[Rfam]
RNA sequence: GGACAAUCUGCAGUCCUAACAAGGCAGAGACGACUGGUGAUAGAGAACACCUAAAAAGCUCA
Numbered sequence: 001g002g003a004c005a006a007u008c009u010g011c012a013g014u015c016c017u018a019a020c021a022a023g024g025c026a027g028a029g030a031c032g033a034c035u036g037g038u039g040a041u042a043g044a045g046a047a048c049a050c051c052u053a054a055a056a057a058g059c060u061c062a
Base pairs, nucleotide, nucleotide: 001016002015003014004013008027009026010025011024036051037050038049039048

A member of the RNA family "GP20-b RNA", 62 nucleotides long.
By type it is a cis-regulatory element.
The base pairs follow the family's consensus structure, which is taken from published work.